[Rfam]
RNA sequence: GGUCGGGAGUUGGAGGCUAUACAAUACCCGCAAGGGAAAAACCUCCGGCCGUUCUGAGUACGGUUUUGAAGCUCCCGGCCUUUUUAUU
Numbered sequence: 001g002g003u004c005g006g007g008a009g010u011u012g013g014a015g016g017c018u019a020u021a022c023a024a025u026a027c028c029c030g031c032a033a034g035g036g037a038a039a040a041a042c043c044u045c046c047g048g049c050c051g052u053u054c055u056g057a058g059u060a061c062g063g064u065u066u067u068g069a070a071g072c073u074c075c076c077g078g079c080c081u082u083u084u085u086a087u088u
Stems, first nucleotide, its partner, number of pairs: 001080009012046004018040001027036003047065006
Dot-bracket structure: (((((((((..((((..(........(((....)))...)..))))((((((.......))))))......)))))))))........
The record is an 88-nucleotide RNA from Halodesulfovibrio spirochaetisodalis, which matches "sRNA-Xcc1" in Rfam. The family has 74 seed sequences and 421 matches in Rfam 15.1. NCBI's taxonomy places the organism under Bacteria, Pseudomonadati, Thermodesulfobacteriota, Desulfovibrionaceae, Halodesulfovibrio.